MIR8565 microRNA precursor family: a 154-nucleotide sequence from Amborella trichopoda.
RNA sequence: CCCACACUCAUGUGUGUAGGACCCCAAGGGAUCACAAUUAAAUUUGGUACAGAUCUCUAGAAUAGUUAUCAUAUAAGUGUUGGACUUGACUUUUCUAUAGAUCUAUGCCAAAUUUAAUGGUGAUCCUUUGGGGUCCUACACACAUGGGUGUGGG
Number, nucleotide and partner (000 for none) at each position: 001c000002c153003c152004a151005c150006a149007c148008u147009c146010a145011u144012g143013u142014g000015u140016g139017u138018a137019g136020g135021a134022c133023c132024c131025c130026a129027a128028g127029g000030g125031a124032u123033c000034a121035c120036a000037a118038u117039u116040a115041a114042a113043u112044u111045u110046g109047g108048u107049a106050c000051a104052g103053a102054u101055c100056u099057c000058u097059a096060g095061a094062a093063u000064a091065g090066u089067u088068a087069u082070c000071a080072u079073a078074u000075a000076a000077g000078u073079g072080u071081u000082g069083g000084a000085c000086u000087u068088g067089a066090c065091u064092u000093u062094u061095c060096u059097a058098u000099a056100g055101a054102u053103c052104u051105a000106u049107g048108c047109c046110a045111a044112a043113u042114u041115u040116a039117a038118u037119g000120g035121u034122g000123a032124u031125c030126c000127u028128u027129u026130g025131g024132g023133g022134u021135c020136c019137u018138a017139c016140a015141c000142a013143c012144a011145u010146g009147g008148g007149u006150g005151u004152g003153g002154g000
Its family is annotated with RISC complex and miRNA-mediated post-transcriptional gene silencing in the Gene Ontology. The family's consensus secondary structure was predicted with RNAalifold.